[Rfam]
RNA sequence: AGUUUCUGAUGAAACUGACCUAAGACAGUAGGGGAGCAGUGCUCAUAAUAUUCCUACCGAGGCACAAAACGUCAUUAUAAAAUAACGUAUUGUACUUUCGUGUCUAGGUUUAGGUGCGAUUUUUUUGUGCCUAU
Numbered sequence: 001a002g003u004u005u006c007u008g009a010u011g012a013a014a015c016u017g018a019c020c021u022a023a024g025a026c027a028g029u030a031g032g033g034g035a036g037c038a039g040u041g042c043u044c045a046u047a048a049u050a051u052u053c054c055u056a057c058c059g060a061g062g063c064a065c066a067a068a069a070c071g072u073c074a075u076u077a078u079a080a081a082a083u084a085a086c087g088u089a090u091u092g093u094a095c096u097u098u099c100g101u102g103u104c105u106a107g108g109u110u111u112a113g114g115u116g117c118g119a120u121u122u123u124u125u126u127g128u129g130c131c132u133a134u
Base pairs, nucleotide, nucleotide: 028057029056030055031054032053033052034044035043036042098119099118100117101116102115103114104113105112106111

The record is a 134-nucleotide RNA from Streptococcus agalactiae, which matches "Ribosomal protein L10 leader" in Rfam. The literature on the family includes a 1994 paper in Prog Nucleic Acid Res Mol Biol by Zengel and Lindahl, "Diverse mechanisms for regulating ribosomal protein synthesis in Escherichia coli". About the family: This family is a putative r-protein leader autoregulatory structure found in B. subtilis and other low-GC Gram-positive bacteria. Rfam's curators put it in the seed alignment. Rfam classes the family as a cis-regulatory leader.